[Rfam]
RNA sequence: CCGUGCUAGACGGGGAGGUAGCGGUGCCCUGUAACCCGCAAUCCGCUAUAGCGGGGUUGAAUUCCUGGUUUGAGGUCUUGUAAUGUGGGGUCUGACGUCUGCACGUAGUGUUGACGGCCGGGUCCUCCGCAAUGGAUACUUGUGAACCCGGUCAGGUCCGGAAGGAAGCAGCCGUAAGCAAGAUUUUCCAUGUGCCGGAGGGCAGCCUAGCCUGAGCCAACGACAGAUGUUCCGCCCGGAUUGCCUGCCCGAGAACAGGUGCACGG
Numbered sequence: 001c002c003g004u005g006c007u008a009g010a011c012g013g014g015g016a017g018g019u020a021g022c023g024g025u026g027c028c029c030u031g032u033a034a035c036c037c038g039c040a041a042u043c044c045g046c047u048a049u050a051g052c053g054g055g056g057u058u059g060a061a062u063u064c065c066u067g068g069u070u071u072g073a074g075g076u077c078u079u080g081u082a083a084u085g086u087g088g089g090g091u092c093u094g095a096c097g098u099c100u101g102c103a104c105g106u107a108g109u110g111u112u113g114a115c116g117g118c119c120g121g122g123u124c125c126u127c128c129g130c131a132a133u134g135g136a137u138a139c140u141u142g143u144g145a146a147c148c149c150g151g152u153c154a155g156g157u158c159c160g161g162a163a164g165g166a167a168g169c170a171g172c173c174g175u176a177a178g179c180a181a182g183a184u185u186u187u188c189c190a191u192g193u194g195c196c197g198g199a200g201g202g203c204a205g206c207c208u209a210g211c212c213u214g215a216g217c218c219a220a221c222g223a224c225a226g227a228u229g230u231u232c233c234g235c236c237c238g239g240a241u242u243g244c245c246u247g248c249c250c251g252a253g254a255a256c257a258g259g260u261g262c263a264c265g266g
Base pairs, nucleotide, nucleotide: 001266002265003264004263005262006261009058010057011056012030013029014028015027017025019023035055036054037053038052039051064259065258066257068256069255070254071253074250075249077247080244081243082242083241084240086238087237088236089235094230097228098227099226100225101224105221106220108217109216116212117211118210120208121207122206123205124201125200126199127198128197129196130192131191133190134189135188136187139182140181141180142179143178149174150173151172152171157166158165159164

Rfam assigns this 266-nucleotide RNA sequence from Paenibacillus sp. YN15 to the family "Bacterial large signal recognition particle RNA". On this family, see Rosenblad et al., Nucleic Acids Res 2003: "SRPDB: Signal Recognition Particle Database". Its Rfam clan is "SRP clan". NCBI's taxonomy places the organism under Bacteria, Bacillota, Bacilli, Paenibacillaceae, Paenibacillus. From the family's description: The signal recognition particle (SRP) is a universally conserved ribonucleoprotein involved in the co-translational targeting of proteins to membranes.